[Rfam]
RNA: SAM riboswitch aptamer (S box leader)
Organism: Nocardioides humilatus
RNA sequence: UGCUCAUCCAGAGGGACUGAGGGAACGGCCCUGCGAAGUCCCGGCAACCGCCACCAACCUCCGCCGCCCACCUGCUUCGACAGAGGGGGGAACGGAAAGUGGAAACGGUGCCAAAUCCGACCCGGUGCGAAAGACGCCACGGGGCAGAUGAGAA
Numbered sequence: 001u002g003c004u005c006a007u008c009c010a011g012a013g014g015g016a017c018u019g020a021g022g023g024a025a026c027g028g029c030c031c032u033g034c035g036a037a038g039u040c041c042c043g044g045c046a047a048c049c050g051c052c053a054c055c056a057a058c059c060u061c062c063g064c065c066g067c068c069c070a071c072c073u074g075c076u077u078c079g080a081c082a083g084a085g086g087g088g089g090g091a092a093c094g095g096a097a098a099g100u101g102g103a104a105a106c107g108g109u110g111c112c113a114a115a116u117c118c119g120a121c122c123c124g125g126u127g128c129g130a131a132a133g134a135c136g137c138c139a140c141g142g143g144g145c146a147g148a149u150g151a152g153a154a
Stems, first nucleotide, its partner, number of pairs: 001154001003152006013042005021031003026119003043112004048108002116146001121143004